The family of this 101-nucleotide sequence from Halobacillus yeomjeoni is "Guanidine-I riboswitch aptamer". The pairing is the family consensus, mapped onto this sequence. Gene Ontology term of the family: regulation of gene expression. A reference for the family is Barrick et al. (2004), "New RNA motifs suggest an expanded scope for riboswitches in bacterial genetic control", Proc Natl Acad Sci U S A. The match comes from Rfam's covariance-model search (86 bits). The organism belongs to Halobacillus, within Bacteria.

RNA sequence: GCGAAUGUUUUCUAGGGUUCCGCAACUUGUGGUGUUGGUCUGGUCCGAGAGAAAACACACAGUUUCAUACUGUGACACGGAAGGACAAAAGCCUGGGAGAU
Numbered sequence: 001g002c003g004a005a006u007g008u009u010u011u012c013u014a015g016g017g018u019u020c021c022g023c024a025a026c027u028u029g030u031g032g033u034g035u036u037g038g039u040c041u042g043g044u045c046c047g048a049g050a051g052a053a054a055a056c057a058c059a060c061a062g063u064u065u066c067a068u069a070c071u072g073u074g075a076c077a078c079g080g081a082a083g084g085a086c087a088a089a090a091g092c093c094u095g096g097g098a099g100a101u
Base pairs, nucleotide, nucleotide: 007056008055009054010053011052012051015046016045020043021042022040023037024036025035026034028032058074059073060072061071062070063069076096078099082094083093084092